[Rfam]
Shown here is a 69-nucleotide sequence from Carnegiea gigantea, a member of the family "Plastid-clpP 5UTR RNA". It is annotated as a cis-regulatory element. Taxonomically the source falls in Carnegiea (Eukaryota, Streptophytina, Spermatophyta, Gunneridae). Plastid clpP is a non-coding RNA (ncRNA) recognised in plastids. The family has 343 seed sequences and 2,105 matches in Rfam 15.1.
RNA sequence: AAUGUUUUUUAUAGGAACAAAGAGAAACAAAUCCAUUCUAUACCCGAUGAGUAGUAAUACGCAAUGGCA
Number, nucleotide and partner (000 for none) at each position: 001a000002a000003u022004g000005u000006u019007u000008u017009u016010u015011a000012u000013a000014g000015g010016a009017a008018c000019a006020a000021a000022g003023a000024g000025a000026a000027a000028c000029a000030a000031a000032u000033c000034c000035a000036u000037u000038c000039u000040a000041u000042a000043c000044c067045c066046g000047a000048u000049g000050a000051g060052u059053a058054g000055u000056a000057a000058u053059a052060c051061g000062c000063a000064a000065u000066g045067g044068c000069a000